[Rfam]
The record is a 113-nucleotide sequence from Salana multivorans, which matches "TPP riboswitch aptamer (THI element)" in Rfam.
Pairs were carried over by alignment from the consensus structure, which is taken from published work.
From the family's description: Vitamin B(1) in its active form thiamin pyrophosphate (TPP) is an essential coenzyme that is synthesised by coupling of pyrimidine and thiazole moieties in bacteria.
The source organism's lineage runs through Bacteria, Actinomycetota, Actinomycetes, Micrococcales and Salana.
RNA sequence: ACGAAACGACAGGGGAGCGCUGCCACCAAGGUGAGCGCUGAGAGUGCGGGAAGCCGCAGACCCUCGAACCUGCUCCGGUUAGCACCGGCGAAGGAAGUCGGGAUCUCUCUCCG
Numbered sequence: 001a002c003g004a005a006a007c008g009a010c011a012g013g014g015g016a017g018c019g020c021u022g023c024c025a026c027c028a029a030g031g032u033g034a035g036c037g038c039u040g041a042g043a044g045u046g047c048g049g050g051a052a053g054c055c056g057c058a059g060a061c062c063c064u065c066g067a068a069c070c071u072g073c074u075c076c077g078g079u080u081a082g083c084a085c086c087g088g089c090g091a092a093g094g095a096a097g098u099c100g101g102g103a104u105c106u107c108u109c110u111c112c113g
Base pairs, nucleotide, nucleotide: 007100008099009098010097011064012063013062014061017038018037019036020035021034045058046057047056048055049054069094070093071092075088076087077086078085
Gene Ontology term of the family: thiamine pyrophosphate binding.